Source information:
The record is a 91-nucleotide RNA from Pectobacterium carotovorum, which matches "OmrA-B family" in Rfam. The organism belongs to Pectobacterium carotovorum subsp. carotovorum, within Bacteria. The family has 23 seed sequences and 153 matches in Rfam 15.1.
[Rfam]
RNA sequence: CCCAGAGGUAUUGAUUGGUGAUAUAUCGAUGUGCUCUGUACAUUGAAACCAUUUGAUUACACCAACCUACGCGGAUGCGUAGGUUUUUUUU
Numbered sequence: 001c002c003c004a005g006a007g008g009u010a011u012u013g014a015u016u017g018g019u020g021a022u023a024u025a026u027c028g029a030u031g032u033g034c035u036c037u038g039u040a041c042a043u044u045g046a047a048a049c050c051a052u053u054u055g056a057u058u059a060c061a062c063c064a065a066c067c068u069a070c071g072c073g074g075a076u077g078c079g080u081a082g083g084u085u086u087u088u089u090u091u
Stems, first nucleotide, its partner, number of pairs: 016064005021053001028044006065084008